SAM riboswitch aptamer (S box leader): a 109-nucleotide RNA sequence from Melghirimyces algeriensis.
[Rfam]
RNA sequence: AUCUUAUCCAGAGUGACGGAGGGAUAUGGCCCGAUGAAGUCCGGCAACCUGCAUGGAUGUUGUAAGGUGCCAAUUCCAGCAAAAUGGAAACCAUUUUGGAAGAUAAGAC
Numbered sequence: 001a002u003c004u005u006a007u008c009c010a011g012a013g014u015g016a017c018g019g020a021g022g023g024a025u026a027u028g029g030c031c032c033g034a035u036g037a038a039g040u041c042c043g044g045c046a047a048c049c050u051g052c053a054u055g056g057a058u059g060u061u062g063u064a065a066g067g068u069g070c071c072a073a074u075u076c077c078a079g080c081a082a083a084a085u086g087g088a089a090a091c092c093a094u095u096u097u098g099g100a101a102g103a104u105a106a107g108a109c
Base pairs, nucleotide, nucleotide: 002108003107004106005105006104007103008102013042015041016040017039021032022031023030027078028077029076043071044070045069046068048067049066050064051063052062053061075101080098081097082096083095084094085093